[Rfam]
RNA sequence: CUCACAGACUUCAUUGGCAUUCUGUCCACCUCCUCUCCUAUCAGAACAAAAAACAACCCAUCAAAAUCCCUCAAAGUGGAGGUGGGCAUACUGCCAACUGAGCUCUGUUGG
Dot-bracket structure: ..........(..((((((...(((((((((((............................................)))))))))))...))))))...)..........
The record is a 111-nucleotide sequence from Camellia sinensis, which matches "MIR394 microRNA precursor family" in Rfam. The source organism's lineage runs through Eukaryota, Euphyllophyta, Mesangiospermae, Pentapetalae and Camellia sinensis. The match comes from Rfam's covariance-model search (86 bits). Gene Ontology terms of the family: miRNA-mediated post-transcriptional gene silencing and RISC complex. The family's consensus secondary structure was predicted with WAR. For this family Rfam cites "Computational identification of plant microRNAs and their targets, including a stress-induced miRNA" (Jones-Rhoades and Bartel, Mol Cell, 2004).